[Rfam]
RNA sequence: GGGGCUGAUUCUGGAUUCGACGGGAUUUGCGAAACCCAAGGUGCAUGCCGAGGGGCGGUUUGCCUCGUAAAAAGCCGCAAAAAAAUAGUCGCAAACGACGAAAACUACGCUUUAGCAGCUUAAUACCCUGCUAAGAGCCCUCUCUCCCUAGCUUCCGCUCUUAAGACGGGGAUAAAGAGAGGUCAAACCCAAAAGAGAUCGCGCGGAUGUCCUGCCUGGGGCUGAAGUGCUAAAACUAAUCAGGCUAGUUCGUUAGUGGCGUGUCUGUCCGCAGCUGGCGUGCGAAUGUAAAGACUGACUAAGCAUGUAGUACCGAGGAUGUAGUAAUUUCGGACGGGGGUUCAAAUCCCCCCAGCUCCACCA
Numbered sequence: 001g002g003g004g005c006u007g008a009u010u011c012u013g014g015a016u017u018c019g020a021c022g023g024g025a026u027u028u029g030c031g032a033a034a035c036c037c038a039a040g041g042u043g044c045a046u047g048c049c050g051a052g053g054g055g056c057g058g059u060u061u062g063c064c065u066c067g068u069a070a071a072a073a074g075c076c077g078c079a080a081a082a083a084a085a086u087a088g089u090c091g092c093a094a095a096c097g098a099c100g101a102a103a104a105c106u107a108c109g110c111u112u113u114a115g116c117a118g119c120u121u122a123a124u125a126c127c128c129u130g131c132u133a134a135g136a137g138c139c140c141u142c143u144c145u146c147c148c149u150a151g152c153u154u155c156c157g158c159u160c161u162u163a164a165g166a167c168g169g170g171g172a173u174a175a176a177g178a179g180a181g182g183u184c185a186a187a188c189c190c191a192a193a194a195g196a197g198a199u200c201g202c203g204c205g206g207a208u209g210u211c212c213u214g215c216c217u218g219g220g221g222c223u224g225a226a227g228u229g230c231u232a233a234a235a236c237u238a239a240u241c242a243g244g245c246u247a248g249u250u251c252g253u254u255a256g257u258g259g260c261g262u263g264u265c266u267g268u269c270c271g272c273a274g275c276u277g278g279c280g281u282g283c284g285a286a287u288g289u290a291a292a293g294a295c296u297g298a299c300u301a302a303g304c305a306u307g308u309a310g311u312a313c314c315g316a317g318g319a320u321g322u323a324g325u326a327a328u329u330u331c332g333g334a335c336g337g338g339g340g341u342u343c344a345a346a347u348c349c350c351c352c353c354a355g356c357u358c359c360a361c362c363a
Stems, first nucleotide, its partner, number of pairs: 001359007021332007034320001036318002040314003044307005049067005055078006111136003115131004139182006146171004152165003158197005201230004214245005248283002251280007259272003263299003267295003336352005